[Rfam]
RNA sequence: AAUAGGAGGAUAACAAAUUAGAUUUUUUCCUCCUAAUUUUUAGCAUUUUUAGCUGAAAUUGAUUUUUUUUCAAAGGAAAAAGCUAAAAAUCAGGAGGAAGAUUUUGAUUUGUCAUUCUCCUAUU
Number, nucleotide and partner (000 for none) at each position: 001a124002a123003u122004a121005g120006g119007a118008g117009g116010a115011u114012a000013a112014c111015a110016a109017a108018u107019u106020a105021g104022a103023u000024u000025u101026u100027u099028u098029c000030c096031u095032c094033c093034u092035a000036a090037u089038u088039u087040u086041u000042a084043g083044c000045a000046u080047u079048u078049u077050u000051a000052g000053c000054u000055g000056a000057a000058a000059u000060u000061g000062a000063u000064u000065u000066u000067u000068u000069u000070u000071c000072a000073a000074a000075g000076g000077a049078a048079a047080a046081a000082g000083c043084u042085a000086a040087a039088a038089a037090u036091c000092a034093g033094g032095a031096g030097g000098a028099a027100g026101a025102u000103u022104u021105u020106g019107a018108u017109u016110u015111g014112u013113c000114a011115u010116u009117c008118u007119c006120c005121u004122a003123u002124u001
RNA: MIR7504 microRNA precursor family